[Rfam]
RNA sequence: ACCCCGGUAUUAUUGAUGUUAUGGGUUUGAAUCGAGCUUAGCCUUGUUCAUUUUUUUACACAACACCCCCGUAAAAAAUACAACACGGCCCGCUCAAGCCUGCGGCGAGCAGGACCUUCGCAGCCCCCAAAGCGCCCCAAAAAUGCCCCACAAGCGCUUUUUUAGGGCAA
Numbered sequence: 001a002c003c004c005c006g007g008u009a010u011u012a013u014u015g016a017u018g019u020u021a022u023g024g025g026u027u028u029g030a031a032u033c034g035a036g037c038u039u040a041g042c043c044u045u046g047u048u049c050a051u052u053u054u055u056u057u058a059c060a061c062a063a064c065a066c067c068c069c070c071g072u073a074a075a076a077a078a079u080a081c082a083a084c085a086c087g088g089c090c091c092g093c094u095c096a097a098g099c100c101u102g103c104g105g106c107g108a109g110c111a112g113g114a115c116c117u118u119c120g121c122a123g124c125c126c127c128c129a130a131a132g133c134g135c136c137c138c139a140a141a142a143a144u145g146c147c148c149c150a151c152a153a154g155c156g157c158u159u160u161u162u163u164a165g166g167g168c169a170a
Stems, first nucleotide, its partner, number of pairs: 023101006034093001036091001041089003044085001046084003052078008154168002157165001
RNA: Pseudomonas sRNA P1